The family of this 137-nucleotide sequence from Scyliorhinus torazame is "Small nucleolar RNA SNORA57". U99 belongs to the H/ACA class of snoRNAs which are thought to guide the sites of modification of uridines to pseudouridines, the target for this family is unknown. Rfam links the family to the GO terms nucleolus and RNA processing. It is annotated as an H/ACA-box small nucleolar RNA.
RNA sequence: CCUGCAGUUCUUGACAUGCCUGCGUCUGUCUGUCGCCUGUGCGUGUUUAUAAACGAGGAAGAAAAAUCUCAGUGCAAAUGUCUUCGGUACCAGCAAGUUGCCAUCUUCUGGUCUUAUCCUCAUUGGCUGGGACACCC
Numbered sequence: 001c002c003u004g005c006a007g008u009u010c011u012u013g014a015c016a017u018g019c020c021u022g023c024g025u026c027u028g029u030c031u032g033u034c035g036c037c038u039g040u041g042c043g044u045g046u047u048u049a050u051a052a053a054c055g056a057g058g059a060a061g062a063a064a065a066a067u068c069u070c071a072g073u074g075c076a077a078a079u080g081u082c083u084u085c086g087g088u089a090c091c092a093g094c095a096a097g098u099u100g101c102c103a104u105c106u107u108c109u110g111g112u113c114u115u116a117u118c119c120u121c122a123u124u125g126g127c128u129g130g131g132a133c134a135c136c137c
Base pairs, nucleotide, nucleotide: 001058002057003056005055015045016044017043018042019041022038024036025035070129071128072127073126075125076124090111091110092109093108095106